Record summary
The record is a 136-nucleotide RNA sequence from Isoptericola variabilis, which matches "FMN riboswitch aptamer (RFN element)" in Rfam. The source organism's lineage runs through Bacteria, Bacillati, Actinomycetota, Isoptericola and Isoptericola variabilis. On this family, see Winkler et al., Proc Natl Acad Sci U S A 2002: "An mRNA structure that controls gene expression by binding FMN".
[Rfam]
RNA sequence: ACACGUGCUCCGGGGUCGGUGAGAGUCCGAACCGGCGGUGACAGCCCGCGACCCGCGGUCCUCCUCGGAGGGGCGCGGUUGACCUGGUGGAACUCCAGGGCCGACGGUGAAAGUCCGGAUGGGAGGCAGCACGUGC
Number, nucleotide and partner (000 for none) at each position: 001a000002c000003a134004c133005g132006u131007g130008c129009u128010c125011c000012g000013g000014g000015g000016u000017c029018g028019g027020u000021g000022a000023g000024a000025g000026u000027c019028c018029g017030a000031a114032c113033c103034g102035g049036c048037g047038g046039u000040g000041a000042c000043a000044g101045c100046c038047c037048g036049c035050g000051a000052c000053c078054c077055g076056c075057g074058g000059u000060c000061c000062u000063c000064c000065u000066c000067g000068g000069a000070g000071g000072g000073g000074c057075g056076c055077g054078g053079u000080u000081g000082a000083c099084c098085u097086g096087g095088u000089g000090g000091a000092a000093c000094u000095c087096c086097a085098g084099g083100g045101c044102c034103g033104a000105c117106g116107g115108u000109g000110a000111a000112a000113g032114u031115c107116c106117g105118g000119a000120u000121g000122g000123g000124a000125g010126g000127c000128a009129g008130c007131a006132c005133g004134u003135g000136c000